RNA sequence: UAGCUUUCGAGGCUUGUUUUAAGUUGCCUGCGACUGUAUUUGAACACAGGCAGCUAAAGCAAGUCUGGUAUGCCA
Numbered sequence: 001u002a003g004c005u006u007u008c009g010a011g012g013c014u015u016g017u018u019u020u021a022a023g024u025u026g027c028c029u030g031c032g033a034c035u036g037u038a039u040u041u042g043a044a045c046a047c048a049g050g051c052a053g054c055u056a057a058a059g060c061a062a063g064u065c066u067g068g069u070a071u072g073c074c075a
Stems, first nucleotide, its partner, number of pairs: 003073002006070001008068001010066011022055009032045001